Shown here is a 103-nucleotide sequence from Priestia taiwanensis, a member of the family "Purine riboswitch aptamer".

RNA sequence: GUACACGAAAAGAAUAUGCCUCAUAUAUUUUUGGGAAUAUGGUCCAAUAGUUUCUACCUAGUAACCAGUAAAUUACUAGACUAUGGGGAAAGCGACGCUGAAG
Numbered sequence: 001g002u003a004c005a006c007g008a009a010a011a012g013a014a015u016a017u018g019c020c021u022c023a024u025a026u027a028u029u030u031u032u033g034g035g036a037a038u039a040u041g042g043u044c045c046a047a048u049a050g051u052u053u054c055u056a057c058c059u060a061g062u063a064a065c066c067a068g069u070a071a072a073u074u075a076c077u078a079g080a081c082u083a084u085g086g087g088g089a090a091a092g093c094g095a096c097g098c099u100g101a102a103g
Stems, first nucleotide, its partner, number of pairs: 019088007029049001031047005058079007

NCBI's taxonomy places the organism under Bacteria, Bacillati, Bacillota, Bacilli, Priestia. Gene Ontology term of the family: purine nucleobase biosynthetic process.